[Rfam]
RNA sequence: AGACGAUGCUUACGCAUCUCCUCAGCCCGAACGAACCCUGGAUAUCGACAGCUUCUUAUAUAAUCGUAAUCCAUAACUCACG
Dot-bracket structure: .((.(((((....)))))))...((.(.(...(.(.(...).).)...).).))............................
Notes
A member of the RNA family "Legionella RNA 69" from Legionella pneumophila, 82 nucleotides long. On this family, see Weissenmayer et al., PLoS One 2011: "Sequencing illustrates the transcriptional response of Legionella pneumophila during infection and identifies seventy novel small non-coding RNAs". The family's RNA type in Rfam is small RNA. The source organism's lineage runs through Bacteria, Pseudomonadati, Legionellales, Legionellaceae and Legionella pneumophila subsp. pneumophila. From the family's description: Identified by strand specific sequencing of the transcriptional response during broth growth and during infection inside the host.